[Rfam]
RNA sequence: UGCGAUGAUGGUGUAAUUUGCGUCUUAUACUGUGCACAGUGACAGUUGCCUACUGUCGAUUAACUGGCACAGAAAAAUGACGAUCAUGCAAAUCUGAGCA
Numbered sequence: 001u002g003c004g005a006u007g008a009u010g011g012u013g014u015a016a017u018u019u020g021c022g023u024c025u026u027a028u029a030c031u032g033u034g035c036a037c038a039g040u041g042a043c044a045g046u047u048g049c050c051u052a053c054u055g056u057c058g059a060u061u062a063a064c065u066g067g068c069a070c071a072g073a074a075a076a077a078u079g080a081c082g083a084u085c086a087u088g089c090a091a092a093u094c095u096g097a098g099c100a
Stems, first nucleotide, its partner, number of pairs: 001100003021082004030072005039064002041057005
RNA: Small nucleolar RNA SNORD16
Organism: Callorhinchus milii